A member of the RNA family "SAM riboswitch aptamer (S box leader)" from Paenalkalicoccus suaedae, 116 nucleotides long. The organism belongs to Paenalkalicoccus, within Bacteria.

RNA sequence: CUCUUAUCCCGAGUUGGCGGAGGGACAGGCCCUAGGAAGCCCAGCAACCAUCACUUCUUUUGACAAAGUGAAACGGUGCUAACCUGCAAGGCGCAAUGCGUCUUGACCGAUAAGAG
Numbered sequence: 001c002u003c004u005u006a007u008c009c010c011g012a013g014u015u016g017g018c019g020g021a022g023g024g025a026c027a028g029g030c031c032c033u034a035g036g037a038a039g040c041c042c043a044g045c046a047a048c049c050a051u052c053a054c055u056u057c058u059u060u061u062g063a064c065a066a067a068g069u070g071a072a073a074c075g076g077u078g079c080u081a082a083c084c085u086g087c088a089a090g091g092c093g094c095a096a097u098g099c100g101u102c103u104u105g106a107c108c109g110a111u112a113a114g115a116g
Stems, first nucleotide, its partner, number of pairs: 001116008013042001016041003022032003026086004043080004048076002051071006087105006